[Rfam]
RNA sequence: CGGAGAGAGAGGGAUUCGAACCCUCGGUACGGUUCAAGACCGUACAACAGAUUAG
Numbered sequence: 001c002g003g004a005g006a007g008a009g010a011g012g013g014a015u016u017c018g019a020a021c022c023c024u025c026g027g028u029a030c031g032g033u034u035c036a037a038g039a040c041c042g043u044a045c046a047a048c049a050g051a052u053u054a055g
Stems, first nucleotide, its partner, number of pairs: 009025005027045006
RNA: Plastid-psbl-rps4 3UTR RNA